[Rfam]
RNA sequence: GUUCAUCGAUGAUGACAAUUCGAAGGCUUGUUUCUCAAAACAUUCGCAGUGGCCGCCUAAGAGCUUUCGCCUUUGCCAGGCUUGAGAGCUAAUGCUGCUACAAUCCUUCCUUGGAUGUCUGAGACC
Numbered sequence: 001g002u003u004c005a006u007c008g009a010u011g012a013u014g015a016c017a018a019u020u021c022g023a024a025g026g027c028u029u030g031u032u033u034c035u036c037a038a039a040a041c042a043u044u045c046g047c048a049g050u051g052g053c054c055g056c057c058u059a060a061g062a063g064c065u066u067u068c069g070c071c072u073u074u075g076c077c078a079g080g081c082u083u084g085a086g087a088g089c090u091a092a093u094g095c096u097g098c099u100a101c102a103a104u105c106c107u108u109c110c111u112u113g114g115a116u117g118u119c120u121g122a123g124a125c126c
Base pairs, nucleotide, nucleotide: 001126003124004123063089064088065087066086067085068084

Shown here is a 126-nucleotide RNA from Corymbia citriodora, a member of the family "Small nucleolar RNA SNORD14". The match comes from Rfam's covariance-model search (77 bits). From the family's description: U14 small nucleolar RNA (U14 snoRNA) is required for early cleavages of eukaryotic precursor rRNAs. The source organism's lineage runs through Eukaryota, Magnoliopsida, Gunneridae, malvids and Corymbia citriodora.